Rfam assigns this 133-nucleotide sequence from Nomascus leucogenys to the family "U8 small nucleolar RNA". Rfam links the family to the GO terms nucleolus and RNA processing. The family's RNA type in Rfam is C/D-box small nucleolar RNA.
RNA sequence: UGGUCAGGCGGGCUAAUCCUUACCUGUUCCUCCUUUUGGAGGGCAGUAGAAUGUGGUAGUUGGAGUUGCAUGAUACUUGAUUCAUAUCUCUGUGUAAUGAGGACGUGCAAUACCCUGAUUGCUCCUUUCUAAU
Numbered sequence: 001u002g003g004u005c006a007g008g009c010g011g012g013c014u015a016a017u018c019c020u021u022a023c024c025u026g027u028u029c030c031u032c033c034u035u036u037u038g039g040a041g042g043g044c045a046g047u048a049g050a051a052u053g054u055g056g057u058a059g060u061u062g063g064a065g066u067u068g069c070a071u072g073a074u075a076c077u078u079g080a081u082u083c084a085u086a087u088c089u090c091u092g093u094g095u096a097a098u099g100a101g102g103a104c105g106u107g108c109a110a111u112a113c114c115c116u117g118a119u120u121g122c123u124c125c126u127u128u129c130u131a132a133u
Stems, first nucleotide, its partner, number of pairs: 024046003028043006072090002075087001094122005100116003